[Rfam]
RNA: mir-628 microRNA precursor family
Organism: Tupaia belangeri
RNA sequence: AUGCUGACAUAUUUACUAGAGGGUAAAAUUAAUAACCUUCUAGUAAGAGUGGCAGUCGAAG
Numbered sequence: 001a002u003g004c005u006g007a008c009a010u011a012u013u014u015a016c017u018a019g020a021g022g023g024u025a026a027a028a029u030u031a032a033u034a035a036c037c038u039u040c041u042a043g044u045a046a047g048a049g050u051g052g053c054a055g056u057c058g059a060a061g
Stems, first nucleotide, its partner, number of pairs: 003056004008051003012047013